[Rfam]
permuted transfer-messenger RNA: a 209-nucleotide sequence from Silicimonas algicola. Rfam classes the family as a non-coding RNA gene. It scores 143 bits against the family's covariance model. The literature on the family includes a 1996 paper in RNA by Williams and Bartel, "Phylogenetic analysis of tmRNA secondary structure". Gene Ontology term of the family: RNA catabolic process. Pairs were carried over by alignment from the consensus structure, which is taken from published work. NCBI's taxonomy places the organism under Bacteria, Pseudomonadati, Alphaproteobacteria, Rhodobacterales, Silicimonas.

RNA sequence: GGACAUAAACGCGCCCGUAAUAAGCGGAUCGGACCCGGGGGCGGUACCCGGCGGCUCCACCAAACAUCCCGAUUGGGGGAUCCUGGGGCCGAAACAGGAUCGACGGACGUCUAAAGGGGUAUGCUUUGUCCCGGUGAGGUACCACCGUUAUCGGUCCAAAUCGCAUAGUUGCCAAUACCAACCGUGCUCCGGUCGCGCUCGCUGCUUAA
Numbered sequence: 001g002g003a004c005a006u007a008a009a010c011g012c013g014c015c016c017g018u019a020a021u022a023a024g025c026g027g028a029u030c031g032g033a034c035c036c037g038g039g040g041g042c043g044g045u046a047c048c049c050g051g052c053g054g055c056u057c058c059a060c061c062a063a064a065c066a067u068c069c070c071g072a073u074u075g076g077g078g079g080a081u082c083c084u085g086g087g088g089c090c091g092a093a094a095c096a097g098g099a100u101c102g103a104c105g106g107a108c109g110u111c112u113a114a115a116g117g118g119g120u121a122u123g124c125u126u127u128g129u130c131c132c133g134g135u136g137a138g139g140u141a142c143c144a145c146c147g148u149u150a151u152c153g154g155u156c157c158a159a160a161u162c163g164c165a166u167a168g169u170u171g172c173c174a175a176u177a178c179c180a181a182c183c184g185u186g187c188u189c190c191g192g193u194c195g196c197g198c199u200c201g202c203u204g205c206u207u208a209a
Stems, first nucleotide, its partner, number of pairs: 001131005013120004025109002029106003035051005052091007132147004